mir-5928 microRNA precursor family: a 75-nucleotide RNA sequence from Haemonchus placei. Lineage of the source: Eukaryota > Rhabditida > Rhabditina > Strongyloidea > Haemonchus.
RNA sequence: GGCCCAAAUCUGAAACAGGGUAGGUUAGUAAGGUCAGCUGGUCCUACUGUUCUACUGUACUUCAAAAUUGGGCCC
Numbered sequence: 001g002g003c004c005c006a007a008a009u010c011u012g013a014a015a016c017a018g019g020g021u022a023g024g025u026u027a028g029u030a031a032g033g034u035c036a037g038c039u040g041g042u043c044c045u046a047c048u049g050u051u052c053u054a055c056u057g058u059a060c061u062u063c064a065a066a067a068u069u070g071g072g073c074c075c
Stems, first nucleotide, its partner, number of pairs: 001074007009066001011064004017058001019056005026049005032043004